[Rfam]
PreQ1 (pre queuosine) riboswitch aptamer: a 45-nucleotide RNA from Priestia veravalensis. Rfam's curators write: This family is a bacterial riboswitch that binds to the metabolite preQ1, an intermediate in the biosynthesis of the modified nucleoside queuosine from GTP. One example of this riboswitch is located in the leader of the Bacillus subtilis ykvJKLM (queCDEF) operon which encodes four genes necessary for queuosine production. For this family Rfam cites "Structural Insights into riboswitch control of the biosynthesis of queuosine, a modified nucleotide found in the anticodon of tRNA" (Kang et al., Mol Cell, 2009). A search with the family's covariance model found it, with a score of 52 bits. The pairing is the family consensus, mapped onto this sequence.
RNA sequence: UAAGACGUGGUUCGGAACCAUCCCACGUAAAAAAACUAAGGAGAG
Dot-bracket structure: .....(((((.....[......))))).........]........
Numbered sequence: 001u002a003a004g005a006c007g008u009g010g011u012u013c014g015g016a017a018c019c020a021u022c023c024c025a026c027g028u029a030a031a032a033a034a035a036c037u038a039a040g041g042a043g044a045g
Stems, first nucleotide, its partner, number of pairs: 006027005016037001